[Rfam]
RNA sequence: ACACCAUCCAGAGCGGCUGAGAGACCCGGCUCGACGACGCCGCAGCAACCCCCCUCGCUCGGAGGGAGUGGGUGCUUCGGCCGGGAGCGAUGGAGA
Numbered sequence: 001a002c003a004c005c006a007u008c009c010a011g012a013g014c015g016g017c018u019g020a021g022a023g024a025c026c027c028g029g030c031u032c033g034a035c036g037a038c039g040c041c042g043c044a045g046c047a048a049c050c051c052c053c054c055u056c057g058c059u060c061g062g063a064g065g066g067a068g069u070g071g072g073u074g075c076u077u078c079g080g081c082c083g084g085g086a087g088c089g090a091u092g093g094a095g096a
Stems, first nucleotide, its partner, number of pairs: 002095001004093005013043005021032003026084004044076004049072002051068001053066002080088001
RNA: SAM riboswitch aptamer (S box leader)